[Rfam]
Nucleotides: 126
Base pairs, nucleotide, nucleotide: 003060004059005058006057007056019047020046021045022044023043025040026039027038028037077114078113079112080111082109083108089104090103091102
Number, partner (000 for none) and nucleotide at each position: 001000a002000c003060c004059c005058u006057c007056c008000a009000g010000u011000u012000c013000c014000c015000u016000u017000u018000c019047c020046c021045a022044u023043c024000g025040g026039a027038u028037c029000u030000a031000a032000a033000c034000c035000c036000u037028g038027g039026u040025c041000c042000u043023g044022g045021u046020g047019g048000u049000c050000g051000u052000a053000a054000a055000a056007g057006g058005a059004g060003g061000a062000a063000u064000a065000g066000u067000a068000g069000u070000a071000c072000u073000g074000a075000a076000a077114c078113u079112g080111g081000g082109c083108u084000c085000g086000u087000a088000g089104u090103g091102u092000g093000u094000g095000c096000u097000g098000u099000a100000u101000a102091g103090c104089a105000u106000g107000u108083g109082g110000g111080c112079u113078a114077g115000u116000u117000u118000c119000a120000g121000a122000c123000a124000a125000g126000g